[Rfam]
Nucleotides: 093
Stems, first nucleotide, its partner, number of pairs: 003093002006091002
Number, partner (000 for none) and nucleotide at each position: 001000g002000a003093g004092u005000u006091a007090a008000u009000g010000a011000u012000g013000a014000u015000u016000a017000u018000a019000a020000a021000a022000a023000u024000a025000a026000u027000u028000c029000u030000u031000c032000a033000u034000u035000c036000u037000g038000a039000c040000u041000u042000a043000c044000u045000u046000a047000a048000u049000u050000u051000g052000g053000a054000c055000a056000u057000g058000a059000c060000a061000a062000a063000c064000c065000u066000a067000u068000u069000a070000u071000u072000a073000c074000a075000a076000c077000c078000a079000u080000a081000g082000a083000a084000u085000c086000u087000g088000a089000g090007u091006u092004a093003c